The family of this 102-nucleotide RNA from Holtiella tumoricola is "Purine riboswitch aptamer". Clan: Purine riboswitches.
RNA sequence: AAAAGAAAAAUGUUAGGUACUUAUAUAAGCUUAGAGAUAAGGUCUAAGCGUUUCUACCGACUACCAUAAAGAGUCUGGGCUAUGAGUAAACUAUCCUAAUAU
Numbered sequence: 001a002a003a004a005g006a007a008a009a010a011u012g013u014u015a016g017g018u019a020c021u022u023a024u025a026u027a028a029g030c031u032u033a034g035a036g037a038u039a040a041g042g043u044c045u046a047a048g049c050g051u052u053u054c055u056a057c058c059g060a061c062u063a064c065c066a067u068a069a070a071g072a073g074u075c076u077g078g079g080c081u082a083u084g085a086g087u088a089a090a091c092u093a094u095c096c097u098a099a100u101a102u
Base pairs, nucleotide, nucleotide: 018088019087020086021085022084023083024082025081029049030048031047032046033045034044035043058078059075060074061073062072